[Rfam]
Source information:
A member of the RNA family "Lysine riboswitch aptamer" from Mediterraneibacter sp. gm002, 175 nucleotides long. Rfam describes the family as follows. Riboswitches are metabolite binding domains within certain messenger RNAs that serve as precision sensors for their corresponding targets. NCBI's taxonomy places the organism under Bacteria, Bacillota, Clostridia, Lachnospirales, Mediterraneibacter.

RNA sequence: AACGUAGAUAGAGGUUGCAUUUUUUAUGAGUAUGAUGUCGGAUGGACAGGGACAGAAGAAGUCAUCAAAAAGGAGAAGAUGCCGAAAGGAUAUGGAAUAACCUGGAGCUAUAUCACUUGGGCGUGGCGUGAAGAACGACACGACUGUCAUCGCAGGAUGGGGAGCUAUCUGAUAU
Numbered sequence: 001a002a003c004g005u006a007g008a009u010a011g012a013g014g015u016u017g018c019a020u021u022u023u024u025u026a027u028g029a030g031u032a033u034g035a036u037g038u039c040g041g042a043u044g045g046a047c048a049g050g051g052a053c054a055g056a057a058g059a060a061g062u063c064a065u066c067a068a069a070a071a072g073g074a075g076a077a078g079a080u081g082c083c084g085a086a087a088g089g090a091u092a093u094g095g096a097a098u099a100a101c102c103u104g105g106a107g108c109u110a111u112a113u114c115a116c117u118u119g120g121g122c123g124u125g126g127c128g129u130g131a132a133g134a135a136c137g138a139c140a141c142g143a144c145u146g147u148c149a150u151c152g153c154a155g156g157a158u159g160g161g162g163a164g165c166u167a168u169c170u171g172a173u174a175u
Base pairs, nucleotide, nucleotide: 006170007169008168009167010166011165017082018081019080020079021078022077023076024075025074033067034066035065036064037063039061086118087117088116089114090113091112092111093110094109095108119145120144122142123141124140125139127137128136129135147160148159149158150157151156
Dot-bracket structure: .....((((((.....(((((((((.......(((((.(.....................).)))))......)))))))))...((((((((((............))))))).)))((.((((.(((.....))).)))).)).(((((....)))))....)))))).....